[Rfam]
glmS glucosamine-6-phosphate activated ribozyme aptamer: a 161-nucleotide RNA from Fervidicola ferrireducens.
From the family's description: This entry contains a glucosamine-6-phosphate activated ribozyme that is found in the mRNA for GlmS. GlmS is an enzyme that uses fructose-6-phosphate and glutamine to generate glucosamine-6-phosphate. The ribozyme catalyses self cleavage of the glmS mRNA that is thought to regulate GlmS activity.
Pairs were carried over by alignment from the consensus structure, which is taken from published work.
RNA sequence: AGACUUUAAAAAGCGCCUGAGCUCUCGGAGGAAUUUUCUUCGGGAGCUGACGAGGAUGGGGUUUAUCGAACUUUCGGCGGAUGCCCCACGGUGACCUGCCACCGUAAGAGGCCUACAAAACCGGCGAGCGAUCGCCGGGACAAAGGGGUCUUCAGCAGGAU
Number, nucleotide and partner (000 for none) at each position: 001a000002g000003a000004c000005u000006u000007u000008a000009a000010a000011a000012a000013g000014c000015g000016c000017c000018u000019g000020a048021g047022c046023u045024c044025u043026c042027g041028g000029a039030g000031g000032a000033a000034u000035u000036u000037u000038c000039u029040u000041c027042g026043g025044g024045a023046g022047c021048u020049g000050a000051c000052g000053a000054g000055g000056a000057u088058g087059g086060g085061g084062u000063u000064u000065a000066u077067c076068g075069a074070a000071c000072u000073u000074u069075c068076g067077g066078c000079g000080g000081a000082u000083g000084c061085c060086c059087c058088a057089c104090g103091g102092u101093g100094a000095c000096c000097u000098g000099c000100c093101a092102c091103c090104g089105u000106a000107a000108g000109a151110g150111g149112c148113c147114u146115a000116c000117a000118a000119a000120a000121c138122c137123g136124g135125c134126g133127a132128g000129c000130g000131a000132u127133c126134g125135c124136c123137g122138g121139g000140a000141c000142a000143a000144a000145g000146g114147g113148g112149u111150c110151u109152u000153c000154a000155g000156c000157a000158g000159g000160a000161u000